[Rfam]
A member of the RNA family "Streptomyces sRNA 4677" from Streptomyces inhibens, 252 nucleotides long. About the family: Located in the intergenic region between anti-sigma factor SCO4677 gene and a putative regulatory protein gene SCO4676. scr4677 expression requires the SCO4677 activity and scr4677 sRNA itself seem to affect the levels of the SCO4676-associated transcripts.

RNA sequence: CGCGUCGGUGGCCCCGGCGCUAAAAGACCAAAUAACCCCAGGUGCAAAGAACCAACCCACCCAACCCAACCGGCGCCGAACACUCGCCUCACUCACUCGGGUGAUCCACGGCCGGAAGGCUCGCCUCCGCGCUCCUCGCCGAUGCACUCUCGGUAACAACAACCCCAAAACCACCGCAAACAUGCGACGGCCCCCGGCCGGGACUGGCAUCCCGAUCGAGGGCCUGACCAACUAGGAAGAGAACGCUUCCUG
Numbered sequence: 001c002g003c004g005u006c007g008g009u010g011g012c013c014c015c016g017g018c019g020c021u022a023a024a025a026g027a028c029c030a031a032a033u034a035a036c037c038c039c040a041g042g043u044g045c046a047a048a049g050a051a052c053c054a055a056c057c058c059a060c061c062c063a064a065c066c067c068a069a070c071c072g073g074c075g076c077c078g079a080a081c082a083c084u085c086g087c088c089u090c091a092c093u094c095a096c097u098c099g100g101g102u103g104a105u106c107c108a109c110g111g112c113c114g115g116a117a118g119g120c121u122c123g124c125c126u127c128c129g130c131g132c133u134c135c136u137c138g139c140c141g142a143u144g145c146a147c148u149c150u151c152g153g154u155a156a157c158a159a160c161a162a163c164c165c166c167a168a169a170a171c172c173a174c175c176g177c178a179a180a181c182a183u184g185c186g187a188c189g190g191c192c193c194c195c196g197g198c199c200g201g202g203a204c205u206g207g208c209a210u211c212c213c214g215a216u217c218g219a220g221g222g223c224c225u226g227a228c229c230a231a232c233u234a235g236g237a238a239g240a241g242a243a244c245g246c247u248u249c250c251u252g
Stems, first nucleotide, its partner, number of pairs: 007232001009230002016077006089104006119164001121162001123160001189224005195218002200213004235250005